The record is a 63-nucleotide RNA from Bacillus sp. J14TS2, which matches "Bacillaceae-1 RNA" in Rfam. The match comes from Rfam's covariance-model search (35 bits). It is annotated as a small RNA. NCBI's taxonomy places the organism under Bacteria, Bacillati, Caryophanales, Bacillaceae, Bacillus.
RNA sequence: GAUAAAGGAACUUCGCCUAGUUACCGACACGUCCUGUGUCGAACAUCGAAGUCACCUAUUAGA
Numbered sequence: 001g002a003u004a005a006a007g008g009a010a011c012u013u014c015g016c017c018u019a020g021u022u023a024c025c026g027a028c029a030c031g032u033c034c035u036g037u038g039u040c041g042a043a044c045a046u047c048g049a050a051g052u053c054a055c056c057u058a059u060u061a062g063a
Base pairs, nucleotide, nucleotide: 011051012050013049014048015047026040027039028038029037030036056062057061